A member of the RNA family "Fluoride riboswitch aptamer (crcB RNA motif)" from Providencia heimbachae, 69 nucleotides long. Gene Ontology terms of the family: response to fluoride and positive regulation of gene expression. The match comes from Rfam's covariance-model search (58 bits).

RNA sequence: UUUAUUUGAGGAGAUGGCAUUCCUCCUAUUACAAACCGCCCAUUUAGGGCUGAUGAUGCCUACGUUGAC
Number, nucleotide and partner (000 for none) at each position: 001u000002u000003u000004a000005u000006u000007u000008g000009a000010g026011g025012a024013g023014a000015u000016g060017g059018c058019a057020u056021u055022c000023c013024u012025c011026c010027u000028a000029u000030u000031a000032c000033a000034a000035a000036c000037c000038g050039c049040c048041c047042a000043u000044u000045u000046a000047g041048g040049g039050c038051u000052g000053a000054u000055g021056a020057u019058g018059c017060c016061u000062a000063c000064g000065u000066u000067g000068a000069c000